About this RNA: The family of this 126-nucleotide RNA sequence from Armadillidium nasatum is "Small nucleolar RNA snoR639/H1". snoR639 or snoH1 belongs to the H/ACA class of snoRNAs which are thought to guide the sites of modification of uridines to pseudouridines. snoH1 is found in an intron of the mfl gene in Drosophila. The organism belongs to Armadillidium, within Eukaryota. Gene Ontology terms of the family: nucleolus and RNA processing.
[Rfam]
RNA sequence: AUCCCAUUUUAUUAAACCGGCAGAUAUUGCUUUUGGCAUAUCUGUGGUCUAAGAAUGGGAAAAAUGAUUUGAUUUGUGUGUAAGGGUUGUCUUAACUAAGGUAACACCUAAGAAAUUAUCAAUACA
Numbered sequence: 001a002u003c004c005c006a007u008u009u010u011a012u013u014a015a016a017c018c019g020g021c022a023g024a025u026a027u028u029g030c031u032u033u034u035g036g037c038a039u040a041u042c043u044g045u046g047g048u049c050u051a052a053g054a055a056u057g058g059g060a061a062a063a064a065u066g067a068u069u070u071g072a073u074u075u076g077u078g079u080g081u082a083a084g085g086g087u088u089g090u091c092u093u094a095a096c097u098a099a100g101g102u103a104a105c106a107c108c109u110a111a112g113a114a115a116u117u118a119u120c121a122a123u124a125c126a
Base pairs, nucleotide, nucleotide: 020045021044022043023042024041025040026039027038069122070121071120072119083109084108085107086105087104088103089102090101091100